A member of the RNA family "c-di-GMP-I riboswitch aptamer" from Olavius algarvensis associated proteobacterium Delta 3, 85 nucleotides long. Lineage of the source: Bacteria > delta/epsilon subdivisions > Deltaproteobacteria. The base pairs follow the family's consensus structure, which is taken from published work.

[Rfam]
RNA sequence: ACAUCGAAAGGGCAACGCUGCUGAAAGGCAGUGACGCAAAGCUACGGGUCUAACGCCGAAAGGUCACGACCGCCGGGCCGCCGAA
Number, nucleotide and partner (000 for none) at each position: 001a000002c000003a000004u000005c000006g000007a000008a000009a000010g000011g000012g037013c036014a000015a000016c000017g032018c031019u030020g029021c028022u027023g000024a000025a000026a000027g022028g021029c020030a019031g018032u017033g000034a000035c000036g013037c012038a000039a000040a000041g078042c077043u076044a000045c075046g074047g073048g070049u069050c068051u000052a000053a000054c000055g064056c063057c062058g000059a000060a000061a000062g057063g056064u055065c000066a000067c000068g050069a049070c048071c000072g000073c047074c046075g045076g043077g042078c041079c000080g000081c000082c000083g000084a000085a000